Overview
Shown here is a 95-nucleotide RNA sequence, a member of the family "pemK RNA".
[Rfam]
RNA sequence: AUAAUGAUACUUCCGUCCAGCCACAGUCCGAGCGUUAAAAGCGUCGCAGGCAAUGGGGGCGGCCCGCCGACAGGGGGGAGGUGAAAGUCCUAUGA
Numbered sequence: 001a002u003a004a005u006g007a008u009a010c011u012u013c014c015g016u017c018c019a020g021c022c023a024c025a026g027u028c029c030g031a032g033c034g035u036u037a038a039a040a041g042c043g044u045c046g047c048a049g050g051c052a053a054u055g056g057g058g059g060c061g062g063c064c065c066g067c068c069g070a071c072a073g074g075g076g077g078g079a080g081g082u083g084a085a086a087g088u089c090c091u092a093u094g095a
Stems, first nucleotide, its partner, number of pairs: 012092001013062006063078003067074002079091003